[Rfam]
RNA sequence: GCAUAUUUCAGGUUCGUGCGUGAAUUUAACGACCCCAACCAACUUCAUUUCCUUCCAUCACUUCCCGCGACUCUCGAGUUAUCGUCAUAUACUCAUUGUUUGGAUGGUGUUAGAUUCACGCACAAACUCGUAAUCUGUCU
Numbered sequence: 001g002c003a004u005a006u007u008u009c010a011g012g013u014u015c016g017u018g019c020g021u022g023a024a025u026u027u028a029a030c031g032a033c034c035c036c037a038a039c040c041a042a043c044u045u046c047a048u049u050u051c052c053u054u055c056c057a058u059c060a061c062u063u064c065c066c067g068c069g070a071c072u073c074u075c076g077a078g079u080u081a082u083c084g085u086c087a088u089a090u091a092c093u094c095a096u097u098g099u100u101u102g103g104a105u106g107g108u109g110u111u112a113g114a115u116u117c118a119c120g121c122a123c124a125a126a127c128u129c130g131u132a133a134u135c136u137g138u139c140u
Stems, first nucleotide, its partner, number of pairs: 001138003005134003011128004016123011028111003
Background:
Rfam assigns this 140-nucleotide sequence from Nyssa sinensis to the family "MIR403 microRNA precursor family". A reference for the family is Mica et al. (2009), "High throughput approaches reveal splicing of primary microRNA transcripts and tissue specific expression of mature microRNAs in Vitis vinifera", BMC Genomics. The match comes from Rfam's covariance-model search (76 bits).